The family of this 147-nucleotide sequence from Punica granatum is "small nucleolar RNA snoR134".
A search with the family's covariance model found it, with a score of 96 bits.
A reference for the family is Chen and Wu (2009), "Mining small RNA sequencing data: a new approach to identify small nucleolar RNAs in Arabidopsis", Nucleic Acids Res.
RNA sequence: AUGCACGAUGCACCCCGGGCUGCUCUGACAGCAAUCCUGACUGAAGAUGACAGCCCCAAUGCACGUGCAAGAUCCUCGCCGUUCGUGUUGCAGUUUAGCUUGAUCCUAUUCCAUGGCUGAUCUGUGUCUAUUUCAACGGCCACAUCU
Numbered sequence: 001a002u003g004c005a006c007g008a009u010g011c012a013c014c015c016c017g018g019g020c021u022g023c024u025c026u027g028a029c030a031g032c033a034a035u036c037c038u039g040a041c042u043g044a045a046g047a048u049g050a051c052a053g054c055c056c057c058a059a060u061g062c063a064c065g066u067g068c069a070a071g072a073u074c075c076u077c078g079c080c081g082u083u084c085g086u087g088u089u090g091c092a093g094u095u096u097a098g099c100u101u102g103a104u105c106c107u108a109u110u111c112c113a114u115g116g117c118u119g120a121u122c123u124g125u126g127u128c129u130a131u132u133u134c135a136a137c138g139g140c141c142a143c144a145u146c147u
Stems, first nucleotide, its partner, number of pairs: 003068005010062002017056005023049001024047003078140006086130001087128001089126005098117003
Dot-bracket structure: ..(((((..((.....(((((.((((..................))).)..)))))....)).))))).........((((((..((.(((((....(((..............)))....))))).).)....)))))).......
The family has 5 seed sequences and 792 matches in Rfam 15.1. Gene Ontology terms of the family: RNA processing and nucleolus. It is annotated as an H/ACA-box small nucleolar RNA. The base pairs follow the family's consensus structure, which was predicted with RNAalifold. Lineage of the source: Eukaryota > Streptophytina > Pentapetalae > rosids > Punica.